Shown here is a 46-nucleotide RNA sequence from Adhaeretor mobilis, a member of the family "Acido-Lenti-1 RNA". A search with the family's covariance model found it, with a score of 54 bits. It is annotated as a small RNA.
[Rfam]
RNA sequence: CCAGGGACUCACGUCCCUGGCUAUUUACUUUCGCCGCUUCGCGGCU
Numbered sequence: 001c002c003a004g005g006g007a008c009u010c011a012c013g014u015c016c017c018u019g020g021c022u023a024u025u026u027a028c029u030u031u032c033g034c035c036g037c038u039u040c041g042c043g044g045c046u
Base pairs, nucleotide, nucleotide: 001020002019003018004017005016006015007014008013033045034044035043036042037041